[Rfam]
RNA: c-di-GMP-I riboswitch aptamer
Organism: Sulfobacillus harzensis
RNA sequence: AGUGUCUCAUAGCAAACCAGCGGAAACGCUGGGACGCAAAGCCACGGGUCUACGGGUUGACACCUACGAUCGCCGGGUUGCCACU
Numbered sequence: 001a002g003u004g005u006c007u008c009a010u011a012g013c014a015a016a017c018c019a020g021c022g023g024a025a026a027c028g029c030u031g032g033g034a035c036g037c038a039a040a041g042c043c044a045c046g047g048g049u050c051u052a053c054g055g056g057u058u059g060a061c062a063c064c065u066a067c068g069a070u071c072g073c074c075g076g077g078u079u080g081c082c083a084c085u
Stems, first nucleotide, its partner, number of pairs: 012037002017032006040079004045075003048070003055064003